[Rfam]
RNA sequence: AUCGCUUCUCGGCCUUUUCGGCUAAGAUUAAAGUUUAGUAUCUGUUCUCGUCGGUUUGAAAGCCGGCGCUGGUCCCAUUGGGGCCAGGCUCUUUCAAGCGGAUUUUUGGACAUCGGCCAGGAUCACCCAAGCUCGCUCGGACCUGUGCCACGGAUCGUCUCGACACUGCAGUGCCGUCGAGUUCGGUCCACUCCCG
Numbered sequence: 001a002u003c004g005c006u007u008c009u010c011g012g013c014c015u016u017u018u019c020g021g022c023u024a025a026g027a028u029u030a031a032a033g034u035u036u037a038g039u040a041u042c043u044g045u046u047c048u049c050g051u052c053g054g055u056u057u058g059a060a061a062g063c064c065g066g067c068g069c070u071g072g073u074c075c076c077a078u079u080g081g082g083g084c085c086a087g088g089c090u091c092u093u094u095c096a097a098g099c100g101g102a103u104u105u106u107u108g109g110a111c112a113u114c115g116g117c118c119a120g121g122a123u124c125a126c127c128c129a130a131g132c133u134c135g136c137u138c139g140g141a142c143c144u145g146u147g148c149c150a151c152g153g154a155u156c157g158u159c160u161c162g163a164c165a166c167u168g169c170a171g172u173g174c175c176g177u178c179g180a181g182u183u184c185g186g187u188c189c190a191c192u193c194c195c196g
Stems, first nucleotide, its partner, number of pairs: 007027003011023004049068006070086007115149003120144002128139001130137002152189006159181006
Rfam assigns this 196-nucleotide RNA from Rotaria magnacalcarata to the family "U2 spliceosomal RNA". By type it is a spliceosomal small nuclear RNA. The base pairs follow the family's consensus structure, which is taken from published work. Rfam describes the family as follows. U2 is a small nuclear RNA (snRNA) component of the spliceosome (involved in pre-mRNA splicing). Complementary binding between U2 snRNA (in an area lying towards the 5' end but 3' to hairpin I) and the branchpoint sequence (BPS) of the intron results the bulging out of an unpaired adenosine, on the BPS, which initiates a nucleophilic attack at the intronic 5' splice site, thus starting the first of two transesterification reactions that mediate splicing. It scores 134 bits against the family's covariance model. Its family is annotated with mRNA branch site recognition, pre-mRNA branch point binding and U2 snRNP in the Gene Ontology. Its Rfam clan is "U2 clan". NCBI's taxonomy places the organism under Eukaryota, Protostomia, Eurotatoria, Philodinida, Rotaria.